The record is a 92-nucleotide RNA sequence from Zingiber officinale, which matches "Small nucleolar RNA Z161/Z228" in Rfam. The match comes from Rfam's covariance-model search (51 bits). The source organism's lineage runs through Eukaryota, Streptophytina, Spermatophyta, commelinids and Zingiber. Rfam links the family to the GO terms nucleolus and RNA processing. The family is grouped with related families in Rfam's "SNORD35 clan". Rfam 15.1 lists 630 matches to the family in 214 species. By type it is a C/D-box small nucleolar RNA.

RNA sequence: AACUUGAUGAUGAGAAUGGAUAUUUACAUCUCACGACGGUCAUCUGAGACGCUUCUGUGUCAAUGUCGAUGCAUAUCCAAACUCUGAUAGCU
Numbered sequence: 001a002a003c004u005u006g007a008u009g010a011u012g013a014g015a016a017u018g019g020a021u022a023u024u025u026a027c028a029u030c031u032c033a034c035g036a037c038g039g040u041c042a043u044c045u046g047a048g049a050c051g052c053u054u055c056u057g058u059g060u061c062a063a064u065g066u067c068g069a070u071g072c073a074u075a076u077c078c079a080a081a082c083u084c085u086g087a088u089a090g091c092u
Base pairs, nucleotide, nucleotide: 001092003090004089050059051058052057